Rfam assigns this 187-nucleotide RNA from Spermophilus dauricus to the family "Beta-globin co-transcriptional cleavage ribozyme". A search with the family's covariance model found it, with a score of 77 bits. About the family: Transcription termination of RNA polymerase II transcripts is proposed to occur by a two stage process. The first stage involves pre-termination cleavage (PTC) of the nascent transcript downstream of the poly(A) site. This process is also referred to as co-transcriptional cleavage (CoTC). The source organism's lineage runs through Eukaryota, Teleostomi, Sciuromorpha, Sciuridae and Spermophilus. The family has 10 seed sequences and 76 matches in Rfam 15.1.

RNA sequence: UAUCAGUGUUGCCAUGAACAACACAUUCUAGCUUCAUUUCCUUAUUCAGUAUGCACUUCAGUAUAUACUACAUUCUGGAAGGAUGAGUUUUAAGUGGUCCUUGUCCUCUUCUCCAUCUCAAUUCUGAAUCUAGCUGGCAAGCAGAAAGUAAUGCAUAUAAUAAGUGAUAACUAAUUAUGGAAGAAUU
Numbered sequence: 001u002a003u004c005a006g007u008g009u010u011g012c013c014a015u016g017a018a019c020a021a022c023a024c025a026u027u028c029u030a031g032c033u034u035c036a037u038u039u040c041c042u043u044a045u046u047c048a049g050u051a052u053g054c055a056c057u058u059c060a061g062u063a064u065a066u067a068c069u070a071c072a073u074u075c076u077g078g079a080a081g082g083a084u085g086a087g088u089u090u091u092a093a094g095u096g097g098u099c100c101u102u103g104u105c106c107u108c109u110u111c112u113c114c115a116u117c118u119c120a121a122u123u124c125u126g127a128a129u130c131u132a133g134c135u136g137g138c139a140a141g142c143a144g145a146a147a148g149u150a151a152u153g154c155a156u157a158u159a160a161u162a163a164g165u166g167a168u169a170a171c172u173a174a175u176u177a178u179g180g181a182a183g184a185a186u187u
Stems, first nucleotide, its partner, number of pairs: 026184002029181001034177001036175003042170005050063003065156002068153001074115001077113002085110003091103004122146005130141002